[Rfam]
RNA sequence: CACUCUGAUGAUGUUUAAUAUAAAAACUUUCGUUCUCCUGAGCUAAUAAAUGCUGAAAUUUUAUGGAGACCUGAGCUGAAGAGUA
Numbered sequence: 001c002a003c004u005c006u007g008a009u010g011a012u013g014u015u016u017a018a019u020a021u022a023a024a025a026a027c028u029u030u031c032g033u034u035c036u037c038c039u040g041a042g043c044u045a046a047u048a049a050a051u052g053c054u055g056a057a058a059u060u061u062u063a064u065g066g067a068g069a070c071c072u073g074a075g076c077u078g079a080a081g082a083g084u085a
Stems, first nucleotide, its partner, number of pairs: 003083004
Rfam assigns this 85-nucleotide sequence from Gossypium trilobum to the family "Small nucleolar RNA Z159/U59". NCBI's taxonomy places the organism under Eukaryota, Streptophytina, Gunneridae, Malvaceae, Gossypium. The family is grouped with related families in Rfam's "SNORD59 clan". For this family Rfam cites "The high diversity of snoRNAs in plants: identification and comparative study of 120 snoRNA genes from Oryza sativa" (Chen et al., Nucleic Acids Res, 2003). The base pairs follow the family's consensus structure, which was predicted with PFOLD.